[Rfam]
Nucleotides: 057
Base pairs, nucleotide, nucleotide: 005052006051007050013032014031015030016029017028018027033049034048035047036046037045038044
Number, partner (000 for none) and nucleotide at each position: 001000c002000c003000a004000c005052c006051c007050g008000c009000a010000a011000g012000g013032g014031g015030g016029g017028a018027g019000a020000u021000u022000u023000c024000c025000a026000a027018c028017u029016c030015c031014c032013c033049g034048g035047g036046u037045g038044u039000u040000g041000a042000c043000g044038a045037c046036a047035c048034c049033c050007c051006g052005g053000c054000c055000c056000c057000a